A member of the RNA family "terC RNA" from Sphingomonas turrisvirgatae, 54 nucleotides long.
RNA sequence: CAAGCGGACCGGGCCCCUCUGACGAUCGGAUGAUCGUGAUGUCGGACCGCAUCG
Number, nucleotide and partner (000 for none) at each position: 001c000002a000003a000004g000005c000006g048007g047008a000009c045010c044011g043012g042013g000014c000015c000016c000017c000018u000019c000020u000021g000022a037023c036024g035025a034026u033027c032028g000029g000030a000031u000032g027033a026034u025035c024036g023037u022038g000039a000040u000041g000042u012043c011044g010045g009046a000047c007048c006049g000050c000051a000052u000053c000054g000